[Rfam]
RNA sequence: GCGGAGGCAGCUCAUCAGUGGGGCUAUGAGCUGAGUGUGUCACAUCACUCCCUUGUCCCUUGGGAAGGUCUGAGACUAGGGCCAGCAGCGGCCCUAACAGGGCUCUCCCUGAGUCUCGGGGAGGUGAGUUCCAAGAGAACGGGGCUCCGUGCGAGGGCAGACUGGGCAGGAGAUGCCGCGGCCCCUCUCCCCGGAGGGACCCGGCGGAUGCCUCCUUAGCCGGAGCUUGGAACAGACUCACGGCCAGCGAAGUGAGAUUACCAUGCCACCUAUUUUGCUUAUUUAUUUAUCUAUACCUAUUUUGC
Numbered sequence: 001g002c003g004g005a006g007g008c009a010g011c012u013c014a015u016c017a018g019u020g021g022g023g024c025u026a027u028g029a030g031c032u033g034a035g036u037g038u039g040u041c042a043c044a045u046c047a048c049u050c051c052c053u054u055g056u057c058c059c060u061u062g063g064g065a066a067g068g069u070c071u072g073a074g075a076c077u078a079g080g081g082c083c084a085g086c087a088g089c090g091g092c093c094c095u096a097a098c099a100g101g102g103c104u105c106u107c108c109c110u111g112a113g114u115c116u117c118g119g120g121g122a123g124g125u126g127a128g129u130u131c132c133a134a135g136a137g138a139a140c141g142g143g144g145c146u147c148c149g150u151g152c153g154a155g156g157g158c159a160g161a162c163u164g165g166g167c168a169g170g171a172g173a174u175g176c177c178g179c180g181g182c183c184c185c186u187c188u189c190c191c192c193g194g195a196g197g198g199a200c201c202c203g204g205c206g207g208a209u210g211c212c213u214c215c216u217u218a219g220c221c222g223g224a225g226c227u228u229g230g231a232a233c234a235g236a237c238u239c240a241c242g243g244c245c246a247g248c249g250a251a252g253u254g255a256g257a258u259u260a261c262c263a264u265g266c267c268a269c270c271u272a273u274u275u276u277g278c279u280u281a282u283u284u285a286u287u288u289a290u291c292u293a294u295a296c297c298u299a300u301u302u303u304g305c
Stems, first nucleotide, its partner, number of pairs: 001305004007298001020060004033050005038044001071289004080245004090104005105123006124241007144226006272284001275281001
A member of the RNA family "Nuclear RNase P" from Ochotona princeps, 305 nucleotides long. Taxonomically the source falls in Ochotona (Eukaryota, Theria, Boreoeutheria, Euarchontoglires).